[Rfam]
RNA sequence: GUCACCCGCAGGGACGCGGUCUGGCAGGAAAUAAUUUGGCAUUAGAUUCAAAUGUUAACUGUAAGACUGUGUCUUUGAGGGCGAU
Numbered sequence: 001g002u003c004a005c006c007c008g009c010a011g012g013g014a015c016g017c018g019g020u021c022u023g024g025c026a027g028g029a030a031a032u033a034a035u036u037u038g039g040c041a042u043u044a045g046a047u048u049c050a051a052a053u054g055u056u057a058a059c060u061g062u063a064a065g066a067c068u069g070u071g072u073c074u075u076u077g078a079g080g081g082c083g084a085u
Base pairs, nucleotide, nucleotide: 003083005081006080007079009077010076011075013073014072015071016070017069018068019067020066021065024062025061026060027059030056031055032054034053035052036051037050
mir-999 microRNA precursor family: an 85-nucleotide sequence from Culex quinquefasciatus. Rfam 15.1 lists 56 matches to the family in 35 species.